[Rfam]
RNA sequence: UCGCAAAAUAGACUAGCAUACUGACUAAUAAUUUAUUUGAAUAUGCCUAUGGUCGGAAACCAGUGAUCUAUAAAGAAAGGAGCCAAUGCCGAAGUCUUAAGCACCAAAACUUAAGGCUGGGUCUGUAUCAAAUAGGUACAGGACUGUCAACAAGGUACGCCCGGUAUCUUGUUGGAGUGCUAUCUCACAA
Dot-bracket structure: .....(.((((....((((..((.((.......(.(.((.(.........................).)).).)......)).))))))...(((((((((........)))))))))((.((((((((.....)))))))).)).((((((((((.........))))))))))....)))).).....

The record is a 190-nucleotide sequence from Oceanirhabdus seepicola, which matches "Lysine riboswitch aptamer" in Rfam.
A search with the family's covariance model found it, with a score of 74 bits.